RNA sequence: GAUCGACUCUCUGGAGAUUCUGAUAUAAUACAGAAGCCGAAGGUGCAACAUAUACAUGCGUAUAUGAAUCUCUCAGGCAAAAGGACAGAGAAGGCCAU
Numbered sequence: 001g002a003u004c005g006a007c008u009c010u011c012u013g014g015a016g017a018u019u020c021u022g023a024u025a026u027a028a029u030a031c032a033g034a035a036g037c038c039g040a041a042g043g044u045g046c047a048a049c050a051u052a053u054a055c056a057u058g059c060g061u062a063u064a065u066g067a068a069u070c071u072c073u074c075a076g077g078c079a080a081a082a083g084g085a086c087a088g089a090g091a092a093g094g095c096c097a098u
Stems, first nucleotide, its partner, number of pairs: 008091006019034004036078003039074002043072001045070001050065006
Overview:
The record is a 98-nucleotide RNA from Eubacterium sp. CAG:248, which matches "Glycine riboswitch aptamer" in Rfam. Rfam links the family to the GO term glycine biosynthetic process. A search with the family's covariance model found it, with a score of 57 bits. The organism belongs to Eubacterium, within Bacteria.